[Rfam]
RNA sequence: CCCCUUGAUCACGCGCCCGGCCCCACCUAUAUAUGAUGUGUUCCCUUUCGGGGGGACUAUGGACAUAAACGCGCUCGUAAUAAGCGGAUCGGACCCGGGGGCGGUACCCGGCGGCUCCACCAAGCCACCCUCAUUGGGGGAGAAUGGGGCCGAAAUAGGAUCGACGAACGUCUAAAGGGGUUUUGCUUUGUCUCGGUGAGCCACCACCGUUAUCGGUGCGAUUUGUACAGUUGCCAAUGACAACCGUGCUCCGGUCGCUCUUGCUGCGUAAGCAGUUCGAGAGAUCGAAACCUAACUCCUUGCGCCUAGCAGCGUAAGGCGGGGCCCGCAGGAGCCUUGCAACAGAAUCCUGCACC
Numbered sequence: 001c002c003c004c005u006u007g008a009u010c011a012c013g014c015g016c017c018c019g020g021c022c023c024c025a026c027c028u029a030u031a032u033a034u035g036a037u038g039u040g041u042u043c044c045c046u047u048u049c050g051g052g053g054g055g056a057c058u059a060u061g062g063a064c065a066u067a068a069a070c071g072c073g074c075u076c077g078u079a080a081u082a083a084g085c086g087g088a089u090c091g092g093a094c095c096c097g098g099g100g101g102c103g104g105u106a107c108c109c110g111g112c113g114g115c116u117c118c119a120c121c122a123a124g125c126c127a128c129c130c131u132c133a134u135u136g137g138g139g140g141a142g143a144a145u146g147g148g149g150c151c152g153a154a155a156u157a158g159g160a161u162c163g164a165c166g167a168a169c170g171u172c173u174a175a176a177g178g179g180g181u182u183u184u185g186c187u188u189u190g191u192c193u194c195g196g197u198g199a200g201c202c203a204c205c206a207c208c209g210u211u212a213u214c215g216g217u218g219c220g221a222u223u224u225g226u227a228c229a230g231u232u233g234c235c236a237a238u239g240a241c242a243a244c245c246g247u248g249c250u251c252c253g254g255u256c257g258c259u260c261u262u263g264c265u266g267c268g269u270a271a272g273c274a275g276u277u278c279g280a281g282a283g284a285u286c287g288a289a290a291c292c293u294a295a296c297u298c299c300u301u302g303c304g305c306c307u308a309g310c311a312g313c314g315u316a317a318g319g320c321g322g323g324g325c326c327c328g329c330a331g332g333a334g335c336c337u338u339g340c341a342a343c344a345g346a347a348u349c350c351u352g353c354a355c356c
Stems, first nucleotide, its partner, number of pairs: 040057007061193005071186002073181004085170002089167003095111005112152007194209004200219002203217003322337004328353006
RNA: Alphaproteobacteria transfer-messenger RNA